[Rfam]
RNA sequence: UGCGACACCCAUCAAAGGAGUAGUUCCCCACCCAAAACCUACUUUGCAAUAUUACGAAUCC
Number, nucleotide and partner (000 for none) at each position: 001u000002g000003c000004g000005a000006c000007a000008c000009c000010c000011a000012u000013c000014a000015a000016a000017g045018g044019a043020g042021u041022a040023g039024u000025u037026c000027c000028c000029c000030a000031c000032c000033c000034a000035a000036a000037a025038c000039c023040u022041a021042c020043u019044u018045u017046g000047c000048a000049a000050u000051a000052u000053u000054a000055c000056g000057a000058a000059u000060c000061c000
This 61-nucleotide RNA sequence from Nicotiana attenuata belongs to the Rfam family "Plastid-psbN 5UTR RNA". A search with the family's covariance model found it, with a score of 57 bits. The literature on the family includes a 2012 paper in Plant Cell by Zhelyazkova et al., "The primary transcriptome of barley chloroplasts: numerous noncoding RNAs and the dominating role of the plastid-encoded RNA polymerase". Pairs were carried over by alignment from the consensus structure, which was predicted with LocARNA. Rfam 15.1 lists 2,345 matches to the family in 397 species.